[Rfam]
Record summary: A member of the RNA family "Small nucleolar RNA U3" from Buteo japonicus, 209 nucleotides long. Small nucleolar RNAs (snoRNAs) are involved in the processing and modification of rRNA in the nucleolus. There are two main classes of snoRNAs: the box C/D class, and the box H/ACA class. U3 snoRNA is a member of the box C/D class. Indeed, the box C/D element is a subset of the six short sequence elements found in all U3 snoRNAs, namely boxes A, A', B, C, C', and D. The U3 snoRNA secondary structure is characterised by a small 5' domain (with boxes A and A'), and a larger 3' domain (with boxes B, C, C', and D), the two domains being linked by a single-stranded hinge. Boxes B and C form the B/C motif, which appears to be exclusive to U3 snoRNAs, and boxes C' and D form the C'/D motif. The latter is functionally similar to the C/D motifs found in other snoRNAs. The 5' domain and the hinge region act as a pre-rRNA-binding domain. The 3' domain has conserved protein-binding sites. Both the box B/C and box C'/D motifs are sufficient for nuclear retention of U3 snoRNA. The box C'/D motif is also necessary for nucleolar localisation, stability and hyper-methylation of U3 snoRNA. Both box B/C and C'/D motifs are involved in specific protein interactions and are necessary for the rRNA processing functions of U3 snoRNA.

RNA sequence: AAGACUAUACUUUCAGGGAUCAUUUCUGUAGUUGGUCACUAGAGGAGAGUGAUCGCACCUGUACGGCGUCACAAACCACGAGGAGGAUGGUGUUGCUCUCUCCUGAGCGCGAAGCGGGCGGGCGGUGCUGCUUGGGCAGGAGCCGCUCGCCAUUGAUGACCGUUCCCGGUCCUUUUGGUCCGGGAGGGAGAGAGCACAGGCUGAGUGGU
Number, nucleotide and partner (000 for none) at each position: 001a000002a040003g039004a000005c000006u035007a000008u000009a032010c031011u030012u000013u000014c028015a027016g026017g025018g024019a000020u000021c000022a000023u000024u018025u017026c016027u015028g014029u000030a011031g010032u009033u000034g000035g006036u000037c000038a000039c003040u002041a000042g000043a000044g000045g000046a000047g000048a000049g064050u063051g062052a000053u061054c000055g000056c000057a000058c000059c000060u000061g053062u051063a050064c049065g000066g000067c000068g000069u000070c000071a000072c000073a000074a000075a209076c208077c207078a206079c205080g000081a000082g000083g000084a000085g000086g000087a000088u000089g000090g000091u000092g000093u000094u196095g195096c194097u193098c192099u191100c190101u189102c188103c187104u186105g000106a000107g163108c162109g161110c000111g000112a000113a000114g000115c000116g000117g151118g150119c149120g148121g000122g000123c145124g144125g143126u142127g000128c139129u138130g137131c136132u000133u000134g000135g000136g131137c130138a129139g128140g000141a000142g126143c125144c124145g123146c000147u000148c120149g119150c118151c117152a000153u000154u000155g000156a000157u000158g000159a000160c000161c109162g108163u107164u000165c000166c183167c182168g181169g180170u000171c178172c177173u000174u000175u000176u000177g172178g171179u000180c169181c168182g167183g166184g000185a000186g104187g103188g102189a101190g100191a099192g098193a097194g096195c095196a094197c000198a000199g000200g000201c000202u000203g000204a000205g079206u078207g077208g076209u075
The family has 87 seed sequences and 19,072 matches in Rfam 15.1. The match comes from Rfam's covariance-model search (153 bits).